Shown here is a 59-nucleotide RNA, a member of the family "GP20-b RNA". Rfam classes the family as a cis-regulatory element.

[Rfam]
RNA sequence: AGCUUAGUACAGAGCGUAAUCAUGUACACGGAAGAGAAGCAACCUCGUAUAAAAGCGUA
Numbered sequence: 001a002g003c004u005u006a007g008u009a010c011a012g013a014g015c016g017u018a019a020u021c022a023u024g025u026a027c028a029c030g031g032a033a034g035a036g037a038a039g040c041a042a043c044c045u046c047g048u049a050u051a052a053a054a055g056c057g058u059a
Base pairs, nucleotide, nucleotide: 002015003014004013008026009025010024011023034046035045036044